[Rfam]
RNA: small nucleolar RNA snoR135
Organism: Trifolium subterraneum
RNA sequence: UGAGCAGUUAUUGUGUAUUGGUAUAUUGCUGCAAUUGCACUCUUCCAAAAGAGUUCCCUGCAACAUAAAUUUCGACAAGAUGGGCAGUUGUGUUUCAUCUUUACAGUUGAAAGUAACGACAAUCAUCUGCCCUACAUUU
Numbered sequence: 001u002g003a004g005c006a007g008u009u010a011u012u013g014u015g016u017a018u019u020g021g022u023a024u025a026u027u028g029c030u031g032c033a034a035u036u037g038c039a040c041u042c043u044u045c046c047a048a049a050a051g052a053g054u055u056c057c058c059u060g061c062a063a064c065a066u067a068a069a070u071u072u073c074g075a076c077a078a079g080a081u082g083g084g085c086a087g088u089u090g091u092g093u094u095u096c097a098u099c100u101u102u103a104c105a106g107u108u109g110a111a112a113g114u115a116a117c118g119a120c121a122a123u124c125a126u127c128u129g130c131c132c133u134a135c136a137u138u139u
Base pairs, nucleotide, nucleotide: 004061005060006059007058010055013040014039015038016037017036074132078128079127080126081125082124083123087120088119089118090117